This 87-nucleotide sequence from Anoxybacillus flavithermus belongs to the Rfam family "BsrC". The family's consensus secondary structure was predicted with CMfinder. Rfam 15.1 lists 572 matches to the family in 553 species. On this family, see Saito et al., Gene 2008: "Novel small RNA-encoding genes in the intergenic regions of Bacillus subtilis".
Nucleotides: 087
Stems, first nucleotide, its partner, number of pairs: 035066002039062002041058007
Number, partner (000 for none) and nucleotide at each position: 001000a002000c003000a004000a005000a006000c007000a008000a009000a010000a011000a012000c013000g014000a015000c016000g017000g018000a019000a020000c021000c022000c023000c024000u025000a026000c027000c028000u029000c030000u031000c032000c033000u034000c035066c036065g037000u038000c039062c040061u041058u042057g043056c044055a045054g046053c047052u048000c049000c050000g051000a052047a053046g054045c055044u056043g057042c058041g059000c060000c061040a062039g063000u064000g065036u066035g067000a068000a069000u070000u071000u072000g073000u074000u075000u076000u077000g078000u079000u080000g081000c082000a083000u084000a085000u086000a087000a
Overview: It is annotated as a small RNA. The 301 nucleotide sequence from Kouji Nakamura has been trimmed to a highly conserved ~85 nucleotide long core to form this family. The source organism's lineage runs through Bacteria, Bacilli, Caryophanales, Anoxybacillaceae and Anoxybacillus.